Rfam assigns this 90-nucleotide RNA from Hymenochirus boettgeri to the family "Small nucleolar SNORD12/SNORD106".
Pairs were carried over by alignment from the consensus structure, which was predicted with RNAalifold.
NCBI's taxonomy places the organism under Eukaryota, Chordata, Tetrapoda, Pipoidea, Hymenochirus.
A search with the family's covariance model found it, with a score of 58 bits.
Rfam 15.1 lists 2,264 matches to the family in 650 species.
[Rfam]
RNA sequence: GCUGAUGUUACAAUGAUGAAUACUUUUUCCCCAUCAGAUCGACCCAUGUUGAUCACGUGAAGCUUAAGCCAGUAAUGUCUGACCAUCAGC
Numbered sequence: 001g002c003u004g005a006u007g008u009u010a011c012a013a014u015g016a017u018g019a020a021u022a023c024u025u026u027u028u029c030c031c032c033a034u035c036a037g038a039u040c041g042a043c044c045c046a047u048g049u050u051g052a053u054c055a056c057g058u059g060a061a062g063c064u065u066a067a068g069c070c071a072g073u074a075a076u077g078u079c080u081g082a083c084c085a086u087c088a089g090c
Stems, first nucleotide, its partner, number of pairs: 001090007